[Rfam]
RNA sequence: UUGGUGCGAUGGAUGGUCGCAAGGUUAAAGCCUUGAGGAAAGUCCGAGCUGCAAUAAGACAGAGUUCCACCUAACGGGUGGCUGAGGUAACUCAAGGGAUAGUGCAACAGAAAGUAAACUGCCGCUUUAGCGGUGAUGGUGAAACGGUGGAGUAAGAGCCCACCAGUGCUAGUAGAGAUACAAGCAGCUAUGUAAACCCAACUCGCAGCAAGAAGGGAUGGUUUGGAGUCUUAUAUUCAACCCUUCGCUUGAAUUUGAUCCAAAAUCAAAUCUAGAUAAAUGACCAUCAUAACAGAACUCGGCUUAUAGUCGCACCUAUUUU
Numbered sequence: 001u002u003g004g005u006g007c008g009a010u011g012g013a014u015g016g017u018c019g020c021a022a023g024g025u026u027a028a029a030g031c032c033u034u035g036a037g038g039a040a041a042g043u044c045c046g047a048g049c050u051g052c053a054a055u056a057a058g059a060c061a062g063a064g065u066u067c068c069a070c071c072u073a074a075c076g077g078g079u080g081g082c083u084g085a086g087g088u089a090a091c092u093c094a095a096g097g098g099a100u101a102g103u104g105c106a107a108c109a110g111a112a113a114g115u116a117a118a119c120u121g122c123c124g125c126u127u128u129a130g131c132g133g134u135g136a137u138g139g140u141g142a143a144a145c146g147g148u149g150g151a152g153u154a155a156g157a158g159c160c161c162a163c164c165a166g167u168g169c170u171a172g173u174a175g176a177g178a179u180a181c182a183a184g185c186a187g188c189u190a191u192g193u194a195a196a197c198c199c200a201a202c203u204c205g206c207a208g209c210a211a212g213a214a215g216g217g218a219u220g221g222u223u224u225g226g227a228g229u230c231u232u233a234u235a236u237u238c239a240a241c242c243c244u245u246c247g248c249u250u251g252a253a254u255u256u257g258a259u260c261c262a263a264a265a266u267c268a269a270a271u272c273u274a275g276a277u278a279a280a281u282g283a284c285c286a287u288c289a290u291a292a293c294a295g296a297a298c299u300c301g302g303c304u305u306a307u308a309g310u311c312g313c314a315c316c317u318a319u320u321u322u
Stems, first nucleotide, its partner, number of pairs: 001318001003316008011307001012288007020035006040305003044302005049208004062204005067081005082096001083094004097199002102197002104193003119138001121134005146164005166188001167186004172181003212246004221237001253271007
Annotation:
Rfam assigns this 322-nucleotide RNA sequence from Campylobacter devanensis to the family "Bacterial RNase P class A". Its family is annotated with dimeric ribonuclease P complex, ribonuclease P activity and tRNA processing in the Gene Ontology. The base pairs follow the family's consensus structure, which is taken from published work. Rfam classes the family as a ribozyme.